[Rfam]
RNA sequence: CGGCGGGCCACGCUCCCCCACCGGAGCGCAGCUCUUCUGUAAGGGAGAGGUUU
Numbered sequence: 001c002g003g004c005g006g007g008c009c010a011c012g013c014u015c016c017c018c019c020a021c022c023g024g025a026g027c028g029c030a031g032c033u034c035u036u037c038u039g040u041a042a043g044g045g046a047g048a049g050g051u052u053u
Base pairs, nucleotide, nucleotide: 011028012027013026014025015024016023033048034047035046036045037044038043
RNA: serC leader
Organism: Enhydrobacter aerosaccus